RNA sequence: CCACUGGUCCGGUUCGUCGUCCUCCUCGCCGCGGACCAGGGUCUGCUCGCCGACGAAGUCGCCGUCCGCGAGCGUGCCGUGGGCGGCCUCGGCGCCGUACGCGCCCUCGCCGACCCUGCUGAGCUUGCCGUGGACGACGAGGAUGACCUGGUCGACGGGCCGGCCCUGCUCCACGAUGACGUCGCCGGGCUCGUACUCGUGCUGGGUGAAGCGGCCCGCGAGGGCGUCCAGCGACAGCUCGUCGUCGUAGCCGCGCAGGGGCGGCAGCUCGCCCAGCUCGCGCGGGAUGACGCGGACGUCGGCGCCGGUGGUCACGAACGUCACCCGUCCGUCACCGACGGUAUAGGUGAGCCGCCGGUUGACGCGAUAGGCGCCGCCCGCCGCCUGUACCCAGGGCAGUAGCUUCAGCAGCCACCGGGAGGAGAUGCCCUGCAUCUGCGGCACGGACUUGGUCGUCGUCGCCAGGUUUCGUGCCGCCGCGGUACCGAGGCUCAACUGCUGUUCCG
Numbered sequence: 001c002c003a004c005u006g007g008u009c010c011g012g013u014u015c016g017u018c019g020u021c022c023u024c025c026u027c028g029c030c031g032c033g034g035a036c037c038a039g040g041g042u043c044u045g046c047u048c049g050c051c052g053a054c055g056a057a058g059u060c061g062c063c064g065u066c067c068g069c070g071a072g073c074g075u076g077c078c079g080u081g082g083g084c085g086g087c088c089u090c091g092g093c094g095c096c097g098u099a100c101g102c103g104c105c106c107u108c109g110c111c112g113a114c115c116c117u118g119c120u121g122a123g124c125u126u127g128c129c130g131u132g133g134a135c136g137a138c139g140a141g142g143a144u145g146a147c148c149u150g151g152u153c154g155a156c157g158g159g160c161c162g163g164c165c166c167u168g169c170u171c172c173a174c175g176a177u178g179a180c181g182u183c184g185c186c187g188g189g190c191u192c193g194u195a196c197u198c199g200u201g202c203u204g205g206g207u208g209a210a211g212c213g214g215c216c217c218g219c220g221a222g223g224g225c226g227u228c229c230a231g232c233g234a235c236a237g238c239u240c241g242u243c244g245u246c247g248u249a250g251c252c253g254c255g256c257a258g259g260g261g262c263g264g265c266a267g268c269u270c271g272c273c274c275a276g277c278u279c280g281c282g283c284g285g286g287a288u289g290a291c292g293c294g295g296a297c298g299u300c301g302g303c304g305c306c307g308g309u310g311g312u313c314a315c316g317a318a319c320g321u322c323a324c325c326c327g328u329c330c331g332u333c334a335c336c337g338a339c340g341g342u343a344u345a346g347g348u349g350a351g352c353c354g355c356c357g358g359u360u361g362a363c364g365c366g367a368u369a370g371g372c373g374c375c376g377c378c379c380g381c382c383g384c385c386u387g388u389a390c391c392c393a394g395g396g397c398a399g400u401a402g403c404u405u406c407a408g409c410a411g412c413c414a415c416c417g418g419g420a421g422g423a424g425a426u427g428c429c430c431u432g433c434a435u436c437u438g439c440g441g442c443a444c445g446g447a448c449u450u451g452g453u454c455g456u457c458g459u460c461g462c463c464a465g466g467u468u469u470c471g472u473g474c475c476g477c478c479g480c481g482g483u484a485c486c487g488a489g490g491c492u493c494a495a496c497u498g499c500u501g502u503u504c505c506g
Base pairs, nucleotide, nucleotide: 006391007390008389010387011386012385014383016329019326023323026317027316034313035312036311037310038309042308043307048304049303050302051301052300053299055235059230061228063226064225065224066112068110069109076104078103079102080101081100083098084097085096086095087094119222120221123219124218128213131210132207135204136203139200141198145196153193154192158190160188161187162186163185164184166178169175238294241291242290243289244288245287246286252282253281254280255279257278258277261272262271263270331342332341333340352380354378356376357375358374363371392432393431394430395429396428397427398426400424404419405418406417408416438477439476440475441474443472444471445470446469447468448466449465450464451463452462453461481505482504485501487499488497489496
A member of the RNA family "Saccharopolyspora sRNA 350" from Actinomadura rubrisoli, 506 nucleotides long. The literature on the family includes a 2013 paper in PLoS One by Liu et al., "Prediction and characterization of small non-coding RNAs related to secondary metabolites in Saccharopolyspora erythraea". Its family is annotated with regulation of secondary metabolite biosynthetic process in the Gene Ontology. The family has 2 seed sequences and 1,170 matches in Rfam 15.1. The family's consensus secondary structure was predicted with RNAfold.